Background
This 65-nucleotide RNA sequence from Bacillus sp. J14TS2 belongs to the Rfam family "Bacillaceae-1 RNA". Rfam classes the family as a small RNA. The organism belongs to Bacillus, within Bacteria.
[Rfam]
RNA sequence: GAACUAGGAAGAAAGGCUAAAUUCGCGCCGUCCUGGCGCAACGCCGAUAGACUCGCUCCUGCGAG
Numbered sequence: 001g002a003a004c005u006a007g008g009a010a011g012a013a014a015g016g017c018u019a020a021a022u023u024c025g026c027g028c029c030g031u032c033c034u035g036g037c038g039c040a041a042c043g044c045c046g047a048u049a050g051a052c053u054c055g056c057u058c059c060u061g062c063g064a065g
Base pairs, nucleotide, nucleotide: 012048015045016044017043025039026038027037028036029035052065053064054063055062056061
Dot-bracket structure: ...........(..(((.......(((((.....)))))...)))..)...(((((....)))))